[Rfam]
RNA sequence: GCCGCUCGAAACUUUGCACACCUCUACGCGGUGGGUGGCAGGCAACACAUGAGAAUGUGGCUGAGAUGCAAUG
Numbered sequence: 001g002c003c004g005c006u007c008g009a010a011a012c013u014u015u016g017c018a019c020a021c022c023u024c025u026a027c028g029c030g031g032u033g034g035g036u037g038g039c040a041g042g043c044a045a046c047a048c049a050u051g052a053g054a055a056u057g058u059g060g061c062u063g064a065g066a067u068g069c070a071a072u073g
Stems, first nucleotide, its partner, number of pairs: 001039007020032003046059005

Shown here is a 73-nucleotide sequence from Faecalibacterium prausnitzii, a member of the family "HDV ribozyme from F. prausnitzii". For this family Rfam cites "Widespread occurrence of self-cleaving ribozymes" (Webb et al., Science, 2009). Gene Ontology term of the family: catalytic activity. The source organism's lineage runs through Bacteria, Bacillati, Clostridia, Oscillospiraceae and Faecalibacterium prausnitzii. The base pairs follow the family's consensus structure, which is taken from published work. The family has 48 seed sequences and 3,803 matches in Rfam 15.1.